[Rfam]
RNA: Iron response element II
RNA sequence: UUAUCAGCGGCAGUGUCCGCUAUAA
Numbered sequence: 001u002u003a004u005c006a007g008c009g010g011c012a013g014u015g016u017c018c019g020c021u022a023u024a025a
Base pairs, nucleotide, nucleotide: 001025002024003023004022006021007020008019009018010017011015